[Rfam]
RNA sequence: UUAAGCCAAUAGGGGUGCCGGGGAUCGCCUUCCCGGCUGAGAAGGGCAAUUAGUCCUACCCUAGAACCUGACCUGGAUAAUACCAGCGUAGGGAAUUGGCUUUUAGUCUAG
Numbered sequence: 001u002u003a004a005g006c007c008a009a010u011a012g013g014g015g016u017g018c019c020g021g022g023g024a025u026c027g028c029c030u031u032c033c034c035g036g037c038u039g040a041g042a043a044g045g046g047c048a049a050u051u052a053g054u055c056c057u058a059c060c061c062u063a064g065a066a067c068c069u070g071a072c073c074u075g076g077a078u079a080a081u082a083c084c085a086g087c088g089u090a091g092g093g094a095a096u097u098g099g100c101u102u103u104u105a106g107u108c109u110a111g
Base pairs, nucleotide, nucleotide: 006099007098008097009096010095011062012061013060014059017037018036019035020034021033022032023031024030044056045055046054047053067092068091069090070089073086074085075084076083

This 111-nucleotide RNA from Natranaerobius thermophilus belongs to the Rfam family "TPP riboswitch aptamer (THI element)".
A search with the family's covariance model found it, with a score of 72 bits.
Vitamin B(1) in its active form thiamin pyrophosphate (TPP) is an essential coenzyme that is synthesised by coupling of pyrimidine and thiazole moieties in bacteria.